[Rfam]
RNA sequence: GGCCUCCUGGAGCUUACCACAGACUGUGUCCUCAUACCAACCGUAUAGACAGAGGAGGGACAAUAAACCUACCUCACAUACACCCAGCCCAGGCCCUGUGCCUGGUUUAUAUUGUGAAGGGGGGAACAUGC
Numbered sequence: 001g002g003c004c005u006c007c008u009g010g011a012g013c014u015u016a017c018c019a020c021a022g023a024c025u026g027u028g029u030c031c032u033c034a035u036a037c038c039a040a041c042c043g044u045a046u047a048g049a050c051a052g053a054g055g056a057g058g059g060a061c062a063a064u065a066a067a068c069c070u071a072c073c074u075c076a077c078a079u080a081c082a083c084c085c086a087g088c089c090c091a092g093g094c095c096c097u098g099u100g101c102c103u104g105g106u107u108u109a110u111a112u113u114g115u116g117a118a119g120g121g122g123g124g125a126a127c128a129u130g131c
Stems, first nucleotide, its partner, number of pairs: 003058006020043001022041001026037004072123004086108002089105006